This 125-nucleotide RNA from Brassica napus belongs to the Rfam family "MIR9563 microRNA precursor family". The organism belongs to Brassica, within Eukaryota. The family's consensus secondary structure was predicted with RNAalifold. It scores 114 bits against the family's covariance model.

RNA sequence: GAAGUAUAAAAACCCGUCUCUUAACUUUUAACUAAAAAAGUUAAGAAUCAGCUCUUAAAACUUCUAUUUAAGAAUUAGUUCUUAACUUUUUUAGUUAAAAGUUAAGAGACGAGUUUUUAUAUUCC
Numbered sequence: 001g002a003a004g005u006a007u008a009a010a011a012a013c014c015c016g017u018c019u020c021u022u023a024a025c026u027u028u029u030a031a032c033u034a035a036a037a038a039a040g041u042u043a044a045g046a047a048u049c050a051g052c053u054c055u056u057a058a059a060a061c062u063u064c065u066a067u068u069u070a071a072g073a074a075u076u077a078g079u080u081c082u083u084a085a086c087u088u089u090u091u092u093a094g095u096u097a098a099a100a101g102u103u104a105a106g107a108g109a110c111g112a113g114u115u116u117u118u119a120u121a122u123u124c125c
Base pairs, nucleotide, nucleotide: 001125003123004122005121006120007119008118009117010116011115012114013113015111016110017109018108019107020106021105022104023103024102025101026100027099028098029097030096031095032094033093034092035091036090037089038088039087041085042084043083044082045081046080047079